[Rfam]
RNA sequence: CGGUAAUGUCUCCUCACCGGUAUCAACGGAGGCACUCGGUCACUCUGUGGGAGGCUUGUCCUCCUUAGAUGCUAGUCGUCAUUAGAGUGAUGUGAGGGAGGGUUUGAUGCCCU
Numbered sequence: 001c002g003g004u005a006a007u008g009u010c011u012c013c014u015c016a017c018c019g020g021u022a023u024c025a026a027c028g029g030a031g032g033c034a035c036u037c038g039g040u041c042a043c044u045c046u047g048u049g050g051g052a053g054g055c056u057u058g059u060c061c062u063c064c065u066u067a068g069a070u071g072c073u074a075g076u077c078g079u080c081a082u083u084a085g086a087g088u089g090a091u092g093u094g095a096g097g098g099a100g101g102g103u104u105u106g107a108u109g110c111c112c113u
Base pairs, nucleotide, nucleotide: 001019002018003017004016007034008033009032010031011030012029013028035096036095037094038093039091040090041089042088043087044086045085046084049065050064051063052062053061054060068080069079070078071077099113100112101111102110103109
Overview:
The family of this 113-nucleotide sequence from Bacillus sp. Y1 is "epsC RNA". The family has 30 seed sequences and 450 matches in Rfam 15.1. Taxonomically the source falls in Bacillus (Bacteria, Bacilli, Caryophanales, Bacillaceae). Pairs were carried over by alignment from the consensus structure, which is taken from published work.